[Rfam]
RNA sequence: GGUUUGUCUGAUGGUACUGAUUCAUCUCAGCUGAUUCAUAGUCAGUUGCAGAUCAAAGUCCUUGUUCUACUCUUUCUCCCCUUCUCAGUACUGCACUUUACUAGUCUAAA
Numbered sequence: 001g002g003u004u005u006g007u008c009u010g011a012u013g014g015u016a017c018u019g020a021u022u023c024a025u026c027u028c029a030g031c032u033g034a035u036u037c038a039u040a041g042u043c044a045g046u047u048g049c050a051g052a053u054c055a056a057a058g059u060c061c062u063u064g065u066u067c068u069a070c071u072c073u074u075u076c077u078c079c080c081c082u083u084c085u086c087a088g089u090a091c092u093g094c095a096c097u098u099u100a101c102u103a104g105u106c107u108a109a110a
Stems, first nucleotide, its partner, number of pairs: 001106004006101002010098002014094002016089005041071001044068002

The record is a 110-nucleotide sequence from Piliocolobus tephrosceles, which matches "Y RNA" in Rfam. Pairs were carried over by alignment from the consensus structure, which is taken from published work. The source organism's lineage runs through Eukaryota, Craniata, Haplorrhini, Catarrhini and Piliocolobus. Rfam classes the family as a non-coding RNA gene. It scores 48 bits against the family's covariance model.